[Rfam]
RNA sequence: CGGUAGCUGUACUCCCAGUGCCCGUCGGCGGAGGCCAGCGGGGCGUCGCCGAGGUGGUCGCCGCCGGCCAGCGCCGCCAGGACGGUCUCGUCGCCGUACUUGCCGGUGCCGAUCCGGUCGACCCGGCCGUGCGCGAUCAGCACCACCCGGUCGUGCGGGGUGCCGGCCUGGGCGAUCAGCUCACCCGGGGCGUACUCGUGCUGAGUAAACCUUUCCCCCAGGGCGGCGAGCACCUCGGUGUCGGUGAAUUCCCACAGCGCGGGGAGCUCGCGCAGCUCGUCGGGGAUGACCGCGACCGACGAGCCGUCGAUGUCGAAGUCGAUCCGCCCGUCGCCGACGGUGUACGCCAGCCGCCGGUUGACCCGGUACGUACCGCCGGAGACCUGCACCCAGGGCAGCAGCCGCAGCAGCCAGCGGGAGGUGAUUCCCUGCAUCUGCGGCGCGGUCUUGGUGGUCGUCGCGAGAUUCCGCGCGGCCGCGGUGGUCAGGCUGGAAUUCUGGCUUUCCUCGG
Numbered sequence: 001c002g003g004u005a006g007c008u009g010u011a012c013u014c015c016c017a018g019u020g021c022c023c024g025u026c027g028g029c030g031g032a033g034g035c036c037a038g039c040g041g042g043g044c045g046u047c048g049c050c051g052a053g054g055u056g057g058u059c060g061c062c063g064c065c066g067g068c069c070a071g072c073g074c075c076g077c078c079a080g081g082a083c084g085g086u087c088u089c090g091u092c093g094c095c096g097u098a099c100u101u102g103c104c105g106g107u108g109c110c111g112a113u114c115c116g117g118u119c120g121a122c123c124c125g126g127c128c129g130u131g132c133g134c135g136a137u138c139a140g141c142a143c144c145a146c147c148c149g150g151u152c153g154u155g156c157g158g159g160g161u162g163c164c165g166g167c168c169u170g171g172g173c174g175a176u177c178a179g180c181u182c183a184c185c186c187g188g189g190g191c192g193u194a195c196u197c198g199u200g201c202u203g204a205g206u207a208a209a210c211c212u213u214u215c216c217c218c219c220a221g222g223g224c225g226g227c228g229a230g231c232a233c234c235u236c237g238g239u240g241u242c243g244g245u246g247a248a249u250u251c252c253c254a255c256a257g258c259g260c261g262g263g264g265a266g267c268u269c270g271c272g273c274a275g276c277u278c279g280u281c282g283g284g285g286a287u288g289a290c291c292g293c294g295a296c297c298g299a300c301g302a303g304c305c306g307u308c309g310a311u312g313u314c315g316a317a318g319u320c321g322a323u324c325c326g327c328c329c330g331u332c333g334c335c336g337a338c339g340g341u342g343u344a345c346g347c348c349a350g351c352c353g354c355c356g357g358u359u360g361a362c363c364c365g366g367u368a369c370g371u372a373c374c375g376c377c378g379g380a381g382a383c384c385u386g387c388a389c390c391c392a393g394g395g396c397a398g399c400a401g402c403c404g405c406a407g408c409a410g411c412c413a414g415c416g417g418g419a420g421g422u423g424a425u426u427c428c429c430u431g432c433a434u435c436u437g438c439g440g441c442g443c444g445g446u447c448u449u450g451g452u453g454g455u456c457g458u459c460g461c462g463a464g465a466u467u468c469c470g471c472g473c474g475g476c477c478g479c480g481g482u483g484g485u486c487a488g489g490c491u492g493g494a495a496u497u498c499u500g501g502c503u504u505u506c507c508u509c510g511g
Stems, first nucleotide, its partner, number of pairs: 006390001008388004015381001018328001020325001023321002026318001029315002036312002039309003043305001045304001046302003050298002054233002058229007065111004077102001079100002082097005118221001120219001126213001129210002131206002134203002140197001150191001154189001156187004161178002166173002236294002240290004245285001249283002253279001256277003259271003329342004351379003355375003361371002391431005397425001399423002403418001405416001407415001437476002440473001442471004448464002451461002477510002480506002484502005
RNA: Saccharopolyspora sRNA 350
Organism: Streptomyces sp. NRRL F-4489